[Rfam]
RNA sequence: GAGAGAGGACGACCUCCCCCAGACAGGGACAGCACCCGGGACGGCCCGC
Numbered sequence: 001g002a003g004a005g006a007g008g009a010c011g012a013c014c015u016c017c018c019c020c021a022g023a024c025a026g027g028g029a030c031a032g033c034a035c036c037c038g039g040g041a042c043g044g045c046c047c048g049c
Stems, first nucleotide, its partner, number of pairs: 001020001003018001005016004037048004
This 49-nucleotide sequence from Pseudooceanicola nitratireducens belongs to the Rfam family "Guanidine-II riboswitch aptamer (mini-ykkC)". Simpler in structure and has fewer highly conserved nucleotide positions than the ykkC-yxkD leader. Despite this each of its two stem-loop structures directly bind free guanidine. Therefore, mini-ykkC RNA motif represents a distinct class of guanidine-sensing RNAs. Its crystal structure was also determined. The base pairs follow the family's consensus structure, which is taken from published work. Lineage of the source: Bacteria > Pseudomonadati > Pseudomonadota > Paracoccaceae > Pseudooceanicola. It scores 33 bits against the family's covariance model.